[Rfam]
RNA sequence: UACUACCAAAUCCUAUUUCCACCUCCACGUGGUGACUGCUGGGAGUUCUUUUCAACGAAAAGCUGCAGACGGAGCAGG
Numbered sequence: 001u002a003c004u005a006c007c008a009a010a011u012c013c014u015a016u017u018u019c020c021a022c023c024u025c026c027a028c029g030u031g032g033u034g035a036c037u038g039c040u041g042g043g044a045g046u047u048c049u050u051u052u053c054a055a056c057g058a059a060a061a062g063c064u065g066c067a068g069a070c071g072g073a074g075c076a077g078g
Stems, first nucleotide, its partner, number of pairs: 012078003016074004021033003044064004049059003
RNA: drz-agam-1 ribozyme
Organism: Hermetia illucens